[Rfam]
RNA: Small nucleolar RNA SNORA1
RNA sequence: GGCCUCAUUUUAGAUGAAAAUGGGCACUCUUAUUCAUGGUGUCCAGAAAUUGUUAAUGUGGCUAUAUUGAGACACAGGUUAUGCUUCCAUCACAGUACGUGUAUUACAGUGGUGACAAUGAGACCUGUAACAUUA
Numbered sequence: 001g002g003c004c005u006c007a008u009u010u011u012a013g014a015u016g017a018a019a020a021u022g023g024g025c026a027c028u029c030u031u032a033u034u035c036a037u038g039g040u041g042u043c044c045a046g047a048a049a050u051u052g053u054u055a056a057u058g059u060g061g062c063u064a065u066a067u068u069g070a071g072a073c074a075c076a077g078g079u080u081a082u083g084c085u086u087c088c089a090u091c092a093c094a095g096u097a098c099g100u101g102u103a104u105u106a107c108a109g110u111g112g113u114g115a116c117a118a119u120g121a122g123a124c125c126u127g128u129a130a131c132a133u134u135a
Stems, first nucleotide, its partner, number of pairs: 002062003006058003021045007074128005088114006